[Rfam]
RNA sequence: UUUCUCUUUAAAAUGGUCCCGUGAGGCUGUAAAGAGGUUGUAACCUGUCAAAAGUGUGGCGAACACCGCUUCCCUUUUUGUCAGUGUGCGGUCAACUCUUUGCUCCUUGGGCAAAGGGUUUUUUUAU
Numbered sequence: 001u002u003u004c005u006c007u008u009u010a011a012a013a014u015g016g017u018c019c020c021g022u023g024a025g026g027c028u029g030u031a032a033a034g035a036g037g038u039u040g041u042a043a044c045c046u047g048u049c050a051a052a053a054g055u056g057u058g059g060c061g062a063a064c065a066c067c068g069c070u071u072c073c074c075u076u077u078u079u080g081u082c083a084g085u086g087u088g089c090g091g092u093c094a095a096c097u098c099u100u101u102g103c104u105c106c107u108u109g110g111g112c113a114a115a116g117g118g119u120u121u122u123u124u125u126a127u
Base pairs, nucleotide, nucleotide: 003037004036005035006034007033008032009031013030014029015028016027017026018025040089041088042087045084046083047082049080050079051078052077053076094120095119096118097117098116099115100114101113102112103111104110105109
Description: Rfam assigns this 127-nucleotide RNA from Geomicrobium sp. JCM 19039 to the family "PyrR binding site". A search with the family's covariance model found it, with a score of 55 bits. By type it is a cis-regulatory element. On this family, see Bonner et al., Nucleic Acids Res 2001: "Molecular recognition of pyr mRNA by the Bacillus subtilis attenuation regulatory protein PyrR". The base pairs follow the family's consensus structure, which is taken from published work.